[Rfam]
RNA: SAM-I/IV (S-adenosyl methionine) riboswitch aptamer
RNA sequence: GACAUGCAUCAAGAGUAGAGUUAAGUCUCUCUCCAACCUGCCACUCCGGCAAGGUGGAAAAAAAGAUGUGGUUAACCAACAAAUAAUGGAGUUAAA
Number, nucleotide and partner (000 for none) at each position: 001g000002a000003c000004a000005u000006g069007c068008a067009u066010c065011a000012a000013g000014a000015g031016u000017a030018g029019a028020g027021u000022u000023a000024a000025g000026u000027c020028u019029c018030u017031c015032u058033c057034c056035a000036a000037c054038c053039u052040g050041c049042c048043a000044c000045u091046c000047c089048g042049g041050c040051a000052a039053g038054g037055u000056g034057g033058a032059a000060a000061a000062a000063a000064a000065g010066a009067u008068g007069u006070g000071g080072u079073u078074a000075a000076c000077c000078a073079a072080c071081a000082a000083a000084u000085a000086a000087u000088g000089g047090a000091g045092u000093u000094a000095a000096a000